[Rfam]
RNA sequence: UUCUAUCUUCGGGGCAGGGUGAAAUUCCCGACCGACGGUGAUGAGUGGUUUAACCACUCUUAGUCCGUGACCCGCUUUAGUUUUCUUUGGCGGUGGACCUGGUGCAAAUCCGGGACCGACAGUUAUAGUCUGGAUGGGAGAAGAUAAGG
Numbered sequence: 001u002u003c004u005a006u007c008u009u010c011g012g013g014g015c016a017g018g019g020u021g022a023a024a025u026u027c028c029c030g031a032c033c034g035a036c037g038g039u040g041a042u043g044a045g046u047g048g049u050u051u052a053a054c055c056a057c058u059c060u061u062a063g064u065c066c067g068u069g070a071c072c073c074g075c076u077u078u079a080g081u082u083u084u085c086u087u088u089g090g091c092g093g094u095g096g097a098c099c100u101g102g103u104g105c106a107a108a109u110c111c112g113g114g115a116c117c118g119a120c121a122g123u124u125a126u127a128g129u130c131u132g133g134a135u136g137g138g139a140g141a142a143g144a145u146a147a148g149g
Stems, first nucleotide, its partner, number of pairs: 004146007017029003031129002033118002035068004063116002072093002098114005120132003